[Rfam]
RNA sequence: AGAUUGCUUUGGAAUGACACGAUCACUCCCGCUGAGCGAGCAGACACACGGCCACGGGGAUGUCGUGUCUGUCCAAAGCCCUUU
Numbered sequence: 001a002g003a004u005u006g007c008u009u010u011g012g013a014a015u016g017a018c019a020c021g022a023u024c025a026c027u028c029c030c031g032c033u034g035a036g037c038g039a040g041c042a043g044a045c046a047c048a049c050g051g052c053c054a055c056g057g058g059g060a061u062g063u064c065g066u067g068u069c070u071g072u073c074c075a076a077a078g079c080c081c082u083u084u
Stems, first nucleotide, its partner, number of pairs: 006079002009076004016069008027059005033054002036052002
The record is an 84-nucleotide sequence from Varanus komodoensis, which matches "mir-425 microRNA precursor family" in Rfam. The base pairs follow the family's consensus structure, which was predicted with RNAalifold. The source organism's lineage runs through Eukaryota, Chordata, Squamata, Paleoanguimorpha and Varanus. The literature on the family includes a 2010 paper in Nature by Warren et al., "The genome of a songbird".